[Rfam]
RNA sequence: UUUCCGCGGGGUGUCUGAUCUAACCCUAAAUGAGGGUCUCCUCCUGUACUAAGCGUUUGCUGUUUUCUUGUUCCUGGCUUUCAGUAGAUUACAGGAGGAAGUUAGCAGGAGCGUUAACGGGGAAAAAAGCCAGGAAGUCACCCCGACGUGCUCAGCUUCCUCCCUGAAACCCCGGCAAUGUUUGCCGUGGUCAGCCCGGCUGCCGCGAAGAGUUAGCCUCUGCUGCUCCGUGGGUUUUUGCUAGUGGAGGAGUUUCUGUGUCUGAGCAGAUUAAAACUGAGUGAGGUGACCCUGCCGGACCUGCUGUGGUCUGGUGAGGAAACCUGUGCUCAAACAUUC
Numbered sequence: 001u002u003u004c005c006g007c008g009g010g011g012u013g014u015c016u017g018a019u020c021u022a023a024c025c026c027u028a029a030a031u032g033a034g035g036g037u038c039u040c041c042u043c044c045u046g047u048a049c050u051a052a053g054c055g056u057u058u059g060c061u062g063u064u065u066u067c068u069u070g071u072u073c074c075u076g077g078c079u080u081u082c083a084g085u086a087g088a089u090u091a092c093a094g095g096a097g098g099a100a101g102u103u104a105g106c107a108g109g110a111g112c113g114u115u116a117a118c119g120g121g122g123a124a125a126a127a128a129g130c131c132a133g134g135a136a137g138u139c140a141c142c143c144c145g146a147c148g149u150g151c152u153c154a155g156c157u158u159c160c161u162c163c164c165u166g167a168a169a170c171c172c173c174g175g176c177a178a179u180g181u182u183u184g185c186c187g188u189g190g191u192c193a194g195c196c197c198g199g200c201u202g203c204c205g206c207g208a209a210g211a212g213u214u215a216g217c218c219u220c221u222g223c224u225g226c227u228c229c230g231u232g233g234g235u236u237u238u239u240g241c242u243a244g245u246g247g248a249g250g251a252g253u254u255u256c257u258g259u260g261u262c263u264g265a266g267c268a269g270a271u272u273a274a275a276a277c278u279g280a281g282u283g284a285g286g287u288g289a290c291c292c293u294g295c296c297g298g299a300c301c302u303g304c305u306g307u308g309g310u311c312u313g314g315u316g317a318g319g320a321a322a323c324c325u326g327u328g329c330u331c332a333a334a335c336a337u338u339c
Stems, first nucleotide, its partner, number of pairs: 002146001007145007040098005055089008071134001074133005079127003151266005158251006166238005171232001173230003186207005192202004209221004279331004284325004290319001293316001298311004
Dot-bracket structure: .(....(((((((..........................(((((..........((((((((........[..[[[[[[[[))))))))....)))))..........................]]].]]]]]]....))))))))....(((((..((((((..((((((.(((..........(((((.((((...))))))))).((((.....))))......))).).))))).......))))))..........)))))............((((.((((..(..(....((((......))))....)..)..))))..))))........